[Rfam]
RNA: TPP riboswitch aptamer (THI element)
RNA sequence: CGCCCAUCCCCGGGGGACCGUCCACAGACGGUUGAGAGGCGGCUGAUGUGGCCGCGACCCGCUGAACCUGAUCCAGUUGAUACUGGCGGAGGGAGUGGGCGCAUGGAGCCAG
Numbered sequence: 001c002g003c004c005c006a007u008c009c010c011c012g013g014g015g016g017a018c019c020g021u022c023c024a025c026a027g028a029c030g031g032u033u034g035a036g037a038g039g040c041g042g043c044u045g046a047u048g049u050g051g052c053c054g055c056g057a058c059c060c061g062c063u064g065a066a067c068c069u070g071a072u073c074c075a076g077u078u079g080a081u082a083c084u085g086g087c088g089g090a091g092g093g094a095g096u097g098g099g100c101g102c103a104u105g106g107a108g109c110c111a112g
Stems, first nucleotide, its partner, number of pairs: 007099003011061004017032005039055007067092003073086004